[Rfam]
RNA sequence: UCCCGUCUCAUGUCCGGGUUAUGACAUGAACCUCCCUGUUGGACUUGCCCCGGCCUUGUGCCGGGGCUUUUUU
Dot-bracket structure: .......(((((((........))))))).................((((((((.....))))))))......
This 73-nucleotide sequence from Brevirhabdus pacifica belongs to the Rfam family "Singlet oxygen resistance RNA X". Gene Ontology term of the family: response to photooxidative stress. Pairs were carried over by alignment from the consensus structure. The match comes from Rfam's covariance-model search (88 bits). Taxonomically the source falls in Brevirhabdus (Bacteria, Pseudomonadati, Rhodobacterales, Paracoccaceae). SorX (RSs2461)like SorY is a singlet oxygen induced sRNA that counteracts oxidative stress by targeting mRNA for a transporter in Rhodobacter. It also has an impact on resistance against organic hydroperoxides. It targets SD sequence of potA mRNA via an aSD sequence. The aSD sequence and some neighbouring nucleotides are identical to the one of SorY (targets takP mRNA). For this family Rfam cites "Photooxidative stress-induced and abundant small RNAs in Rhodobacter sphaeroides" (Berghoff et al., Mol Microbiol, 2009). It is annotated as a small RNA.